[Rfam]
RNA: FMN riboswitch aptamer (RFN element)
RNA sequence: GUUCUUGCUCAGGGAUGGGUGAAAUUCCCUAUCGGCGGUAAAGUCCGCGAGCGCCGGGCCGUGCAUAAAAACGGGACCGCGCGCAGAUCCGGUGCGACUCCGGAACCGACGGUGACAGUCCGGAAGGAAGAGCAGGGAG
Numbered sequence: 001g002u003u004c005u006u007g008c009u010c011a012g013g014g015a016u017g018g019g020u021g022a023a024a025u026u027c028c029c030u031a032u033c034g035g036c037g038g039u040a041a042a043g044u045c046c047g048c049g050a051g052c053g054c055c056g057g058g059c060c061g062u063g064c065a066u067a068a069a070a071a072c073g074g075g076a077c078c079g080c081g082c083g084c085a086g087a088u089c090c091g092g093u094g095c096g097a098c099u100c101c102g103g104a105a106c107c108g109a110c111g112g113u114g115a116c117a118g119u120c121c122g123g124a125a126g127g128a129a130g131a132g133c134a135g136g137g138a139g
Stems, first nucleotide, its partner, number of pairs: 003137008017029003031119002033108002035048004043106002051084003088104005110122003